[Rfam]
RNA sequence: CCUGGCGAUGACGACCAACUUGCCCUCACUGAGAACACUGUUCGCUAAUGAGAGCAUCACCGUGUGCUCAGGUGAGCUGAGCCAGG
Numbered sequence: 001c002c003u004g005g006c007g008a009u010g011a012c013g014a015c016c017a018a019c020u021u022g023c024c025c026u027c028a029c030u031g032a033g034a035a036c037a038c039u040g041u042u043c044g045c046u047a048a049u050g051a052g053a054g055c056a057u058c059a060c061c062g063u064g065u066g067c068u069c070a071g072g073u074g075a076g077c078u079g080a081g082c083c084a085g086g
Stems, first nucleotide, its partner, number of pairs: 001086006
This 86-nucleotide RNA from Nothoprocta ornata belongs to the Rfam family "Small nucleolar RNA SNORD103/SNORD85". The literature on the family includes a 2003 paper in Nucleic Acids Res by Vitali et al., "Identification of 13 novel human modification guide RNAs". The family's RNA type in Rfam is C/D-box small nucleolar RNA. Taxonomically the source falls in Nothoprocta (Eukaryota, Gnathostomata, Sauria, Dinosauria).